[Rfam]
RNA sequence: GGGCUUGCGCGCGACUGGCGUAGGUGGGGUAACCACCGGGGAGCGCGCACAAUCCCCGCAGGGCAUGGUCCGCCUGGGUGCCCGGG
Numbered sequence: 001g002g003g004c005u006u007g008c009g010c011g012c013g014a015c016u017g018g019c020g021u022a023g024g025u026g027g028g029g030u031a032a033c034c035a036c037c038g039g040g041g042a043g044c045g046c047g048c049a050c051a052a053u054c055c056c057c058g059c060a061g062g063g064c065a066u067g068g069u070c071c072g073c074c075u076g077g078g079u080g081c082c083c084g085g086g
Base pairs, nucleotide, nucleotide: 006049007048008047009046010045011044012043015040016039017074018073019072020071024036025035026034027033063081064080065079066078